[Rfam]
RNA sequence: AAUAUCCAAAAAUUCUACUAGGUUCCACUGUUGGAUUAGUGAUCAGACGUACAGCAGCACUGUGCGUAUCAUAUAUUCCGCCAAAAAACAUCGCCUUGGCAACUAAUAGCAAUGCACCCAAACCUAAAAUAAUCAAAUGAUGUCCUAAAAUCAACCCCAAUUGUUUUGGAUCAUCCCA
Numbered sequence: 001a002a003u004a005u006c007c008a009a010a011a012a013u014u015c016u017a018c019u020a021g022g023u024u025c026c027a028c029u030g031u032u033g034g035a036u037u038a039g040u041g042a043u044c045a046g047a048c049g050u051a052c053a054g055c056a057g058c059a060c061u062g063u064g065c066g067u068a069u070c071a072u073a074u075a076u077u078c079c080g081c082c083a084a085a086a087a088a089c090a091u092c093g094c095c096u097u098g099g100c101a102a103c104u105a106a107u108a109g110c111a112a113u114g115c116a117c118c119c120a121a122a123c124c125u126a127a128a129a130u131a132a133u134c135a136a137a138u139g140a141u142g143u144c145c146u147a148a149a150a151u152c153a154a155c156c157c158c159a160a161u162u163g164u165u166u167u168g169g170a171u172c173a174u175c176c177c178a
Stems, first nucleotide, its partner, number of pairs: 137174005144169002147166002
Shown here is a 178-nucleotide RNA from Calothrix sp. PCC 6303, a member of the family "Antisense RNA which regulates isiA expression". The base pairs follow the family's consensus structure, which was predicted with PFOLD. Lineage of the source: Bacteria > Cyanobacteriota > Nostocales > Calotrichaceae > Calothrix. On this family, see Duhring et al., Proc Natl Acad Sci U S A 2006: "An internal antisense RNA regulates expression of the photosynthesis gene isiA".